[Rfam]
RNA sequence: UGGUGUUGAAGCAAUUGACUGUGUCGGUAUGCAGCCGGUUGUGGAGCCUGGCCUUGGGUUAUGCGGUAACCUCAAACCGAAUAGGUUCUGGGAACUGAAUGAAAACGCUUUUA
Numbered sequence: 001u002g003g004u005g006u007u008g009a010a011g012c013a014a015u016u017g018a019c020u021g022u023g024u025c026g027g028u029a030u031g032c033a034g035c036c037g038g039u040u041g042u043g044g045a046g047c048c049u050g051g052c053c054u055u056g057g058g059u060u061a062u063g064c065g066g067u068a069a070c071c072u073c074a075a076a077c078c079g080a081a082u083a084g085g086u087u088c089u090g091g092g093a094a095c096u097g098a099a100u101g102a103a104a105a106c107g108c109u110u111u112u113a
Stems, first nucleotide, its partner, number of pairs: 002048003011042007019034004024080004063108003084096004
Overview:
The record is a 113-nucleotide RNA sequence from Firmicutes bacterium CAG:95, which matches "drum RNA" in Rfam. Rfam's curators put it in the seed alignment.